[Rfam]
RNA sequence: AUACCGGCAGGGAAUGAAGGUCUCCCUUGGGCAACCUAAACCGCUGUACAGGCUGAUGACUUCUGUGAUUUU
Numbered sequence: 001a002u003a004c005c006g007g008c009a010g011g012g013a014a015u016g017a018a019g020g021u022c023u024c025c026c027u028u029g030g031g032c033a034a035c036c037u038a039a040a041c042c043g044c045u046g047u048a049c050a051g052g053c054u055g056a057u058g059a060c061u062u063c064u065g066u067g068a069u070u071u072u
Base pairs, nucleotide, nucleotide: 010026011025012024013023016063017062018061019060021058043053044052045051
This 72-nucleotide sequence from Faecalibacterium gallinarum belongs to the Rfam family "Fluoride riboswitch aptamer (crcB RNA motif)". Taxonomically the source falls in Faecalibacterium (Bacteria, Bacillati, Bacillota, Eubacteriales).